[Rfam]
RNA sequence: UGCAUCCUCAAUUCCGUAGUGCAUUGCAGUCGAUUAUUUGAUUCACGUGAGAGAACCUGCAAGCACCGCGGGAGUGAGGUAGCUUC
Dot-bracket structure: .....(((((..(((((..(((.(((((.............................))))))))..)))))..))))).......
RNA: mir-932 microRNA precursor family
Organism: Atta cephalotes